Rfam assigns this 83-nucleotide sequence from Tardiphaga sp. vice352 to the family "tRNA". Gene Ontology term of the family: triplet codon-amino acid adaptor activity. A search with the family's covariance model found it, with a score of 48 bits. It is annotated as a transfer RNA. Lineage of the source: Bacteria > Pseudomonadota > Alphaproteobacteria > Nitrobacteraceae > Tardiphaga.

RNA sequence: GGGGGAGUGUCCCGAGUGGCAAAGGGAGCUGACUGUAAAUCAGCCGUCUUAUGACUUCGAAGGUUCGAGUCCUUCUUCCCCCA
Numbered sequence: 001g002g003g004g005g006a007g008u009g010u011c012c013c014g015a016g017u018g019g020c021a022a023a024g025g026g027a028g029c030u031g032a033c034u035g036u037a038a039a040u041c042a043g044c045c046g047u048c049u050u051a052u053g054a055c056u057u058c059g060a061a062g063g064u065u066c067g068a069g070u071c072c073u074u075c076u077u078c079c080c081c082c083a
Stems, first nucleotide, its partner, number of pairs: 001082007011026003028044005059075005